[Rfam]
RNA sequence: GGCUUGUGCUGAGAGCCGGGGGUUCGGGUGGCGGCUGCAGCUGCAGCCACCACCCGAUCCCCCGGCUCUCAACACAAGCC
Numbered sequence: 001g002g003c004u005u006g007u008g009c010u011g012a013g014a015g016c017c018g019g020g021g022g023u024u025c026g027g028g029u030g031g032c033g034g035c036u037g038c039a040g041c042u043g044c045a046g047c048c049a050c051c052a053c054c055c056g057a058u059c060c061c062c063c064g065g066c067u068c069u070c071a072a073c074a075c076a077a078g079c080c
Stems, first nucleotide, its partner, number of pairs: 001080004006075003014067004019062004028053004033048005
Shown here is an 80-nucleotide RNA sequence from Pelusios castaneus, a member of the family "mir-25 microRNA precursor family". Lineage of the source: Eukaryota > Metazoa > Sauria > Pleurodira > Pelusios. Its family is annotated with RISC complex and miRNA-mediated post-transcriptional gene silencing in the Gene Ontology. The match comes from Rfam's covariance-model search (42 bits). The family's consensus secondary structure was predicted with RNAalifold.